Background
The record is a 103-nucleotide RNA sequence from Leitneria floridana, which matches "Plastid-rps12 3UTR RNA" in Rfam. Rfam classes the family as a cis-regulatory element. Plastid rpl20 is a non-coding RNA (ncRNA) recognised in plastids. It was found in the three prime untranslated region (3UTR) of rps12 gene, its 3UTR location sugest a role in transcript maduration.
[Rfam]
RNA sequence: GGUUUCCAUUGGCACAAAUUAAAUCACCUCAAGUUUCAAUUUUAGGUGAGAAAGAAUUCCCCGUUGGUAACAAACAGUUAUCCAUUAAGCGGGGGAAAUAUUA
Numbered sequence: 001g002g003u004u005u006c007c008a009u010u011g012g013c014a015c016a017a018a019u020u021a022a023a024u025c026a027c028c029u030c031a032a033g034u035u036u037c038a039a040u041u042u043u044a045g046g047u048g049a050g051a052a053a054g055a056a057u058u059c060c061c062c063g064u065u066g067g068u069a070a071c072a073a074a075c076a077g078u079u080a081u082c083c084a085u086u087a088a089g090c091g092g093g094g095g096a097a098a099u100a101u102u103a
Stems, first nucleotide, its partner, number of pairs: 009023002012020001059094004063085002066082006